[Rfam]
RNA: Bacterial RNase P class A
RNA sequence: GGAGUCGGCCAGGCAACCGCGCCCGCGUGAGCGGGGGAGGAAAGUCCGGGCUCCACAGGGCAGGGUGCCAGGUAACGCCUGGGGGGCGCGAGCCUACGGAAAGUGCAACAGAAAGGAUACCGCCCGGCGCUUCGGCGCCAGGUAAGGGUGAAAUGGUGCGGUAAGAGCGCACCGCGCAGGUGGCAACACGCUGCGGCAAGGUAAACCCCACCCGGAGCAAGACCAAAUAGGAAGGCAAUGCCGCGGCCCGCGGUGCCUUCGGGUAGGUCGCUUCAGGCUGCCGGUGACGGCAGUCGCAGAUGAAUGGUUGCCCACGACAGAACCCGGCUUAUCGGCCGACUCCAACU
Numbered sequence: 001g002g003a004g005u006c007g008g009c010c011a012g013g014c015a016a017c018c019g020c021g022c023c024c025g026c027g028u029g030a031g032c033g034g035g036g037g038a039g040g041a042a043a044g045u046c047c048g049g050g051c052u053c054c055a056c057a058g059g060g061c062a063g064g065g066u067g068c069c070a071g072g073u074a075a076c077g078c079c080u081g082g083g084g085g086g087c088g089c090g091a092g093c094c095u096a097c098g099g100a101a102a103g104u105g106c107a108a109c110a111g112a113a114a115g116g117a118u119a120c121c122g123c124c125c126g127g128c129g130c131u132u133c134g135g136c137g138c139c140a141g142g143u144a145a146g147g148g149u150g151a152a153a154u155g156g157u158g159c160g161g162u163a164a165g166a167g168c169g170c171a172c173c174g175c176g177c178a179g180g181u182g183g184c185a186a187c188a189c190g191c192u193g194c195g196g197c198a199a200g201g202u203a204a205a206c207c208c209c210a211c212c213c214g215g216a217g218c219a220a221g222a223c224c225a226a227a228u229a230g231g232a233a234g235g236c237a238a239u240g241c242c243g244c245g246g247c248c249c250g251c252g253g254u255g256c257c258u259u260c261g262g263g264u265a266g267g268u269c270g271c272u273u274c275a276g277g278c279u280g281c282c283g284g285u286g287a288c289g290g291c292a293g294u295c296g297c298a299g300a301u302g303a304a305u306g307g308u309u310g311c312c313c314a315c316g317a318c319a320g321a322a323c324c325c326g327g328c329u330u331a332u333c334g335g336c337c338g339a340c341u342c343c344a345a346c347u
Base pairs, nucleotide, nucleotide: 001343002342003341004340005339006338007337008336009335010334011332012312013311014310015309016308017307018306020037022035023034024033025032026031042330043329044328046327047326048325049324050323051217052216053215054214058249059248060247061246063213064212065211066210067209068082069081070080071079072078083097084095085094086093087092098208099207103206104205105202106201120147121146122143123142124141126139127138128137129136130135155173156172157171158170159169160168174197175195176194177193178192179191180189181188182187221269222268223267224266231260232259233258234257235256236255240254241253242252243251244250276295277294278293279292280291281290282289283288